Source information
Ribosomal protein L10 leader: a 120-nucleotide sequence from Catenisphaera adipataccumulans. From the family's description: This family is a putative r-protein leader autoregulatory structure found in B. subtilis and other low-GC Gram-positive bacteria. It is located in the 5' untranslated regions of mRNAs encoding ribosomal proteins L10 and L12 (rplJ-rplL). A Rho-independent transcription terminator structure that is probably involved in regulation is included at the 3' end. Taxonomically the source falls in Catenisphaera (Bacteria, Bacillota, Erysipelotrichales, Erysipelotrichaceae). The match comes from Rfam's covariance-model search (66 bits). On this family, see Zengel and Lindahl, Prog Nucleic Acid Res Mol Biol 1994: "Diverse mechanisms for regulating ribosomal protein synthesis in Escherichia coli". Pairs were carried over by alignment from the consensus structure, which was predicted with CMfinder.
RNA sequence: CACGUUGUUAUCAAUAUUCCAAAGACAGUAACGGCCGUCCGGCUUAAUCAUGUUACCGAGGGUUGAUGCGUAUUUUGCAUACUUUCCCCGUGCCUUUGGCGCGGGUUUUCUUUUGAAUAU
Numbered sequence: 001c002a003c004g005u006u007g008u009u010a011u012c013a014a015u016a017u018u019c020c021a022a023a024g025a026c027a028g029u030a031a032c033g034g035c036c037g038u039c040c041g042g043c044u045u046a047a048u049c050a051u052g053u054u055a056c057c058g059a060g061g062g063u064u065g066a067u068g069c070g071u072a073u074u075u076u077g078c079a080u081a082c083u084u085u086c087c088c089c090g091u092g093c094c095u096u097u098g099g100c101g102c103g104g105g106u107u108u109u110c111u112u113u114u115g116a117a118u119a120u
Stems, first nucleotide, its partner, number of pairs: 028056006034043003087105008